A member of the RNA family "Y RNA" from Mandrillus leucophaeus, 97 nucleotides long. It scores 64 bits against the family's covariance model.

RNA sequence: GGCUAGUCAGAUGGUAGUGGGUUAUCAGAACUUAUUAACAUUAGUGUCACUGAAGUUGGCAUUCAAUCCCCCCACUGCUAAAUUUGACUGGCUUUUA
Numbered sequence: 001g002g003c004u005a006g007u008c009a010g011a012u013g014g015u016a017g018u019g020g021g022u023u024a025u026c027a028g029a030a031c032u033u034a035u036u037a038a039c040a041u042u043a044g045u046g047u048c049a050c051u052g053a054a055g056u057u058g059g060c061a062u063u064c065a066a067u068c069c070c071c072c073c074a075c076u077g078c079u080a081a082a083u084u085u086g087a088c089u090g091g092c093u094u095u096u097a
Stems, first nucleotide, its partner, number of pairs: 001093008010085002015080001016076006033061001035059001037057002